Description: A member of the RNA family "U2 spliceosomal RNA" from Schmidtea mediterranea, 190 nucleotides long. About the family: U2 is a small nuclear RNA (snRNA) component of the spliceosome (involved in pre-mRNA splicing). Complementary binding between U2 snRNA (in an area lying towards the 5' end but 3' to hairpin I) and the branchpoint sequence (BPS) of the intron results the bulging out of an unpaired adenosine, on the BPS, which initiates a nucleophilic attack at the intronic 5' splice site, thus starting the first of two transesterification reactions that mediate splicing. NCBI's taxonomy places the organism under Eukaryota, Opisthokonta, Eumetazoa, Protostomia, Schmidtea. It is annotated as a spliceosomal small nuclear RNA. Gene Ontology terms of the family: pre-mRNA branch point binding, mRNA branch site recognition and U2 snRNP.
[Rfam]
RNA sequence: AGUGCUUCUAGCUUCAUAGCUAUGAUCAAAAGUGUAAGAACUGUUCUUCUCAGUUUAAUCGCUGGGACAAAGUUCAUUGAUCUUAAUUCGAGAUUAAAUUGAUUUUUGUAACUUUACAGACACUCCAAGGCUUGCCAAGCUCUGUCGUAGUGGACCUUACAUUGCAUUACAGUUUGGUCUGCUUGUUUAA
Numbered sequence: 001a002g003u004g005c006u007u008c009u010a011g012c013u014u015c016a017u018a019g020c021u022a023u024g025a026u027c028a029a030a031a032g033u034g035u036a037a038g039a040a041c042u043g044u045u046c047u048u049c050u051c052a053g054u055u056u057a058a059u060c061g062c063u064g065g066g067a068c069a070a071a072g073u074u075c076a077u078u079g080a081u082c083u084u085a086a087u088u089c090g091a092g093a094u095u096a097a098a099u100u101g102a103u104u105u106u107u108g109u110a111a112c113u114u115u116a117c118a119g120a121c122a123c124u125c126c127a128a129g130g131c132u133u134g135c136c137a138a139g140c141u142c143u144g145u146c147g148u149a150g151u152g153g154a155c156c157u158u159a160c161a162u163u164g165c166a167u168u169a170c171a172g173u174u175u176g177g178u179c180u181g182c183u184u185g186u187u188u189a190a
Stems, first nucleotide, its partner, number of pairs: 007025002010021004048067006070084003074080002116145005129136002149183008159173002